[Rfam]
The family of this 49-nucleotide RNA from Pseudidiomarina taiwanensis is "L31-Gammaproteobacteria ribosomal protein leader".
RNA sequence: CGUAUGGUGUUCGACUUCGGGUCGGAUGGCGAUACGGCCUAACUGAGGU
Numbered sequence: 001c002g003u004a005u006g007g008u009g010u011u012c013g014a015c016u017u018c019g020g021g022u023c024g025g026a027u028g029g030c031g032a033u034a035c036g037g038c039c040u041a042a043c044u045g046a047g048g049u
Stems, first nucleotide, its partner, number of pairs: 001036005007030002011025005
The source organism's lineage runs through Bacteria, Pseudomonadati, Pseudomonadota, Idiomarinaceae and Pseudidiomarina. A search with the family's covariance model found it, with a score of 55 bits. The family is grouped with related families in Rfam's "Ribosomal Protein L31 Leader clan". The family's consensus secondary structure is taken from published work.